RNA sequence: UCCCCUCGGCAAUGGGCAAGGAGACACCUGAUUGGUGGUGUUGGUCUUAUAGCAGUCAGGGGCAAAGCAUACAUACAGUCCUUAGUUCAUUCUAGCUUGAUGCCUGUGUCGGUGGCCAGAGCUGGUUCAUGCCUGAGGCACAUAA
Numbered sequence: 001u002c003c004c005c006u007c008g009g010c011a012a013u014g015g016g017c018a019a020g021g022a023g024a025c026a027c028c029u030g031a032u033u034g035g036u037g038g039u040g041u042u043g044g045u046c047u048u049a050u051a052g053c054a055g056u057c058a059g060g061g062g063c064a065a066a067g068c069a070u071a072c073a074u075a076c077a078g079u080c081c082u083u084a085g086u087u088c089a090u091u092c093u094a095g096c097u098u099g100a101u102g103c104c105u106g107u108g109u110c111g112g113u114g115g116c117c118a119g120a121g122c123u124g125g126u127u128c129a130u131g132c133c134u135g136a137g138g139c140a141c142a143u144a145a
Stems, first nucleotide, its partner, number of pairs: 001064001003062004008057001013054002019048003023042006085139003099133001101131001105129002109125003
Dot-bracket structure: (.((((.(....((....(((.((((((........))))))...)))....))..).)))).)....................(((...........(.(...((..(((...........)))..)).).)...)))......
Shown here is a 145-nucleotide RNA from Pipistrellus kuhlii, a member of the family "Small nucleolar RNA SNORA48". A search with the family's covariance model found it, with a score of 64 bits. The organism belongs to Pipistrellus, within Eukaryota. Rfam's curators write: The snoRNA ACA 48 has been identified to guide pseudouridylation of the residue U3797 in the 28S rRNA subunit. Gene Ontology terms of the family: RNA processing and nucleolus. A reference for the family is Ofengand and Bakin (1997), "Mapping to nucleotide resolution of pseudouridine residues in large subunit ribosomal RNAs from representative eukaryotes, prokaryotes, archaebacteria, mitochondria and chloroplasts", J Mol Biol. Clan: SNORA48 clan.